[Rfam]
RNA sequence: GAAAGAAGCCUCUAGCUCCGUGGUUCUUUCGAUAUUAAUUUACUAGAAAGGAUAUCAAAUCGGCACAAGCUGCGUUGGUAGCGAGCCAGGGUGAUGAGCGUUGAGCUGAAAGGCGGAGAUACCUCCAUUUGA
Dot-bracket structure: (((((((................)))))))((((((..(((....)))..))))))...((.((.((((..((..((((.....))))..))..).....))).)).....((.(((......))).)).))
Numbered sequence: 001g002a003a004a005g006a007a008g009c010c011u012c013u014a015g016c017u018c019c020g021u022g023g024u025u026c027u028u029u030c031g032a033u034a035u036u037a038a039u040u041u042a043c044u045a046g047a048a049a050g051g052a053u054a055u056c057a058a059a060u061c062g063g064c065a066c067a068a069g070c071u072g073c074g075u076u077g078g079u080a081g082c083g084a085g086c087c088a089g090g091g092u093g094a095u096g097a098g099c100g101u102u103g104a105g106c107u108g109a110a111a112g113g114c115g116g117a118g119a120u121a122c123c124u125c126c127a128u129u130u131g132a
Stems, first nucleotide, its partner, number of pairs: 001030007031056006039048003060132002063106002066103003069095001072092002076088004112129002115126003
Group II catalytic intron D1-D4-2: a 132-nucleotide RNA sequence from Acidithrix ferrooxidans. Group II introns are found in rRNA, tRNA and mRNA of organelles in fungi, plants and protists, and also in mRNA in bacteria. For this family Rfam cites "The ins and outs of group II introns" (Bonen and Vogel, Trends Genet, 2001). NCBI's taxonomy places the organism under Bacteria, Bacillati, Actinomycetota, Acidimicrobiales, Acidithrix.